[Rfam]
Description
Rfam assigns this 124-nucleotide sequence from Macaca fascicularis to the family "small Cajal body-specific RNA 17". About the family: scaRNAs are a specific class of small nuclear RNAs which localise to the Cajal bodies and guide the modification of RNA polymerase II transcribed spliceosomal RNAs U1, U2, U4, U5 and U12. The complete human U12-22/U4-8 scaRNA is composed of two tandem C/D box domains (termed U12-22 and U4-8). A reference for the family is Tycowski et al. (2004), "Guide RNAs with 5' Caps and Novel Box C/D snoRNA-like Domains for Modification of snRNAs in Metazoa", Curr Biol. Pairs were carried over by alignment from the consensus structure, which is taken from published work.

Nucleotides: 124
Stems, first nucleotide, its partner, number of pairs: 001117004008111005037077004042072001044070002049066007
Number, partner (000 for none) and nucleotide at each position: 001117u002116u003115c004114u005000u006000a007000g008111g009110u010109c011108c012107c013000c014000a015000g016000g017000u018000g019000a020000g021000u022000g023000u024000u025000u026000u027000c028000c029000u030000u031000c032000c033000a034000u035000g036000a037077u038076c039075a040074g041000a042072u043000c044070c045069c046000a047000u048000u049066g050065u051064a052063g053062g054061u055060g056000g057000c058000a059000a060055u061054g062053c063052c064051u065050g066049c067000u068000g069045g070044g071000a072042g073000c074040c075039u076038g077037a078000g079000a080000a081000a082000a083000u084000u085000a086000u087000a088000c089000a090000a091000a092000c093000a094000u095000g096000g097000c098000a099000g100000g101000u102000a103000a104000a105000g106000u107012g108011g109010g110009g111008u112000c113000a114004g115003g116002g117001a118000c119000c120000c121000g122000g123000g124000a
NCBI's taxonomy places the organism under Eukaryota, Metazoa, Vertebrata, Cercopithecidae, Macaca. Gene Ontology terms of the family: RNA processing, nucleolus and Cajal body. By type it is a small Cajal body RNA.